[Rfam]
RNA sequence: AGUUUCCUGGGGUGUGCGUGAACCCGCUAUUUUGAACCUACAUUUACGUUCAUGGGAUUCCAAUAUUUCUGUCUGGAUGUCAGGCCUCCGAUUUUGCAGUGGAAGGCAGAAGGGCAGUUGAGGUUACCCACCUAGCAUUAGCUAGGCGUCAAAAUCGCGGAAACGGCACUUUGGGUUCCUA
Numbered sequence: 001a002g003u004u005u006c007c008u009g010g011g012g013u014g015u016g017c018g019u020g021a022a023c024c025c026g027c028u029a030u031u032u033u034g035a036a037c038c039u040a041c042a043u044u045u046a047c048g049u050u051c052a053u054g055g056g057a058u059u060c061c062a063a064u065a066u067u068u069c070u071g072u073c074u075g076g077a078u079g080u081c082a083g084g085c086c087u088c089c090g091a092u093u094u095u096g097c098a099g100u101g102g103a104a105g106g107c108a109g110a111a112g113g114g115c116a117g118u119u120g121a122g123g124u125u126a127c128c129c130a131c132c133u134a135g136c137a138u139u140a141g142c143u144a145g146g147c148g149u150c151a152a153a154a155u156c157g158c159g160g161a162a163a164c165g166g167c168a169c170u171u172u173g174g175g176u177u178c179c180u181a
Base pairs, nucleotide, nucleotide: 002179006175007174008173009172010171011170012169013168014167015166017165018164019163031153033151034150035149037146038145054129055128056127060123061122065119069117070116071115072114073113074112080106081105085102086101088099
Record summary: 6S / SsrS RNA: a 181-nucleotide RNA sequence from Anaerosacchariphilus hominis. About the family: E. coli 6S RNA was the first non coding RNA to be sequenced, but its function was unknown until recently. A search with the family's covariance model found it, with a score of 72 bits. The literature on the family includes a 2000 paper in Cell by Wassarman and Storz, "6S RNA regulates E. coli RNA polymerase activity". NCBI's taxonomy places the organism under Bacteria, Bacillati, Bacillota, Clostridia, Anaerosacchariphilus.